[Rfam]
RNA sequence: CUGACAGGUACGCAUGGGUCGACGUUCGUGCAACGAGCCCGUUCCCGCUGCUUCAAUAAUGGGCAGAAGGAUGCGUUAUUGUCAG
Numbered sequence: 001c002u003g004a005c006a007g008g009u010a011c012g013c014a015u016g017g018g019u020c021g022a023c024g025u026u027c028g029u030g031c032a033a034c035g036a037g038c039c040c041g042u043u044c045c046c047g048c049u050g051c052u053u054c055a056a057u058a059a060u061g062g063g064c065a066g067a068a069g070g071a072u073g074c075g076u077u078a079u080u081g082u083c084a085g
Base pairs, nucleotide, nucleotide: 001085002084003083004082005081010076011075012074013073015041016040017039018038023035024034025033026032043071044070045069049065050064051063052062053061
RNA: L4-Archaeoglobi ribosomal protein leades